[Rfam]
RNA sequence: UUGCAUCCACUGAUAGACCUGAAGCAGAAAUCAUUGGCUUCUGGGUUUGCAUAGAGAUGCUAAAAUGAGUCUUCCUUGCGUUUUCUGACUGCUACAAUCUAUAGCAGCACGGAUUGAAUUGAGGAAUACAUUC
Numbered sequence: 001u002u003g004c005a006u007c008c009a010c011u012g013a014u015a016g017a018c019c020u021g022a023a024g025c026a027g028a029a030a031u032c033a034u035u036g037g038c039u040u041c042u043g044g045g046u047u048u049g050c051a052u053a054g055a056g057a058u059g060c061u062a063a064a065a066u067g068a069g070u071c072u073u074c075c076u077u078g079c080g081u082u083u084u085c086u087g088a089c090u091g092c093u094a095c096a097a098u099c100u101a102u103a104g105c106a107g108c109a110c111g112g113a114u115u116g117a118a119u120u121g122a123g124g125a126a127u128a129c130a131u132u133c
Base pairs, nucleotide, nucleotide: 003060004059005058006057007056011051012050014049015048016047017046018045019044022040023039024038025037027035028034073125074124075123076122077121078120081116084113085112086111087110089107090106091105092104093103